[Rfam]
Overview
The family of this 70-nucleotide RNA from Amphiprion percula is "miR-430 microRNA precursor family". The base pairs follow the family's consensus structure, which was predicted with RNAalifold. A search with the family's covariance model found it, with a score of 66 bits.
RNA sequence: AUCAUUACUCUAACAUAAGUACUGACUUGAGUUCUGAAAACAGUAAGUGCUAAUUGUUGGGGUAAUCUUG
Numbered sequence: 001a002u003c004a005u006u007a008c009u010c011u012a013a014c015a016u017a018a019g020u021a022c023u024g025a026c027u028u029g030a031g032u033u034c035u036g037a038a039a040a041c042a043g044u045a046a047g048u049g050c051u052a053a054u055u056g057u058u059g060g061g062g063u064a065a066u067c068u069u070g
Stems, first nucleotide, its partner, number of pairs: 004066008013057003018051006025044003